[Rfam]
RNA sequence: GGGGCCGAUCGGUUUCGACUACGUGCAUCGAGGUGGGGGAAGCGUGUCGGUGCAGGCUAGAGACCACCGUAAGCGUCGCAGCAACCAAUUAAGCGCCGAUUCCAAUCAGCGCGACUACGCUCUCGCUGCCUGAUCAGCGAGGCUAGUCUGUCGGCCCGGUUCUAAGUUCCCGGAACCGGAUGCCGGCAUCAGCUAGGGAACUCACUGUCGCCGCCGGUCGCGGGCGUCGGCAGGACAUCCAACAGCGACUGGGAUCGUCAUCCCGGCUUGUUCGCGAGACCGGGAGAUCCGAGUAGAGACACAGCGGACUGCACACGGAGAAGCCCCACUGAAGUGACGGAGGACCCGGGUUCAAUUCCCGGCGGCUCCACGA
Numbered sequence: 001g002g003g004g005c006c007g008a009u010c011g012g013u014u015u016c017g018a019c020u021a022c023g024u025g026c027a028u029c030g031a032g033g034u035g036g037g038g039g040a041a042g043c044g045u046g047u048c049g050g051u052g053c054a055g056g057c058u059a060g061a062g063a064c065c066a067c068c069g070u071a072a073g074c075g076u077c078g079c080a081g082c083a084a085c086c087a088a089u090u091a092a093g094c095g096c097c098g099a100u101u102c103c104a105a106u107c108a109g110c111g112c113g114a115c116u117a118c119g120c121u122c123u124c125g126c127u128g129c130c131u132g133a134u135c136a137g138c139g140a141g142g143c144u145a146g147u148c149u150g151u152c153g154g155c156c157c158g159g160u161u162c163u164a165a166g167u168u169c170c171c172g173g174a175a176c177c178g179g180a181u182g183c184c185g186g187c188a189u190c191a192g193c194u195a196g197g198g199a200a201c202u203c204a205c206u207g208u209c210g211c212c213g214c215c216g217g218u219c220g221c222g223g224g225c226g227u228c229g230g231c232a233g234g235a236c237a238u239c240c241a242a243c244a245g246c247g248a249c250u251g252g253g254a255u256c257g258u259c260a261u262c263c264c265g266g267c268u269u270g271u272u273c274g275c276g277a278g279a280c281c282g283g284g285a286g287a288u289c290c291g292a293g294u295a296g297a298g299a300c301a302c303a304g305c306g307g308a309c310u311g312c313a314c315a316c317g318g319a320g321a322a323g324c325c326c327c328a329c330u331g332a333a334g335u336g337a338c339g340g341a342g343g344a345c346c347c348g349g350g351u352u353c354a355a356u357u358c359c360c361g362g363c364g365g366c367u368c369c370a371c372g373a
Base pairs, nucleotide, nucleotide: 001369002368003367004366005365006364007363019342020341022339023338024337028333032330033329034328035327036326037325038324043317044316045315046314047313048069049068050067051066052065056082057081058080121142122141123140124139125138126137127136128135149188150187151186152185153184154183156179157178158177160175161174162173163172166201167200168199169198170197171196205233206232207231208230209229210228212226213225216250217249218248219247220246221245252290253289254288255287256286258284259283267278270309271308272307273306346362347361348360349359350358